[Rfam]
RNA sequence: GGAGAUGGAUGGGGCCUGGUGGCUCCCGCGGCCUUCAAAGCCGUUGUGAGGCGCGCAGAACGUCUCGGGUGUGUUCGAUUCGCACACAUCUCC
Numbered sequence: 001g002g003a004g005a006u007g008g009a010u011g012g013g014g015c016c017u018g019g020u021g022g023c024u025c026c027c028g029c030g031g032c033c034u035u036c037a038a039a040g041c042c043g044u045u046g047u048g049a050g051g052c053g054c055g056c057a058g059a060a061c062g063u064c065u066c067g068g069g070u071g072u073g074u075u076c077g078a079u080u081c082g083c084a085c086a087c088a089u090c091u092c093c
Stems, first nucleotide, its partner, number of pairs: 001093007008085001011026006028044005047067005070084004
Selenocysteine transfer RNA: a 93-nucleotide RNA sequence from Enterorhabdus sp. P55. Clan: tRNA clan. Gene Ontology term of the family: triplet codon-amino acid adaptor activity.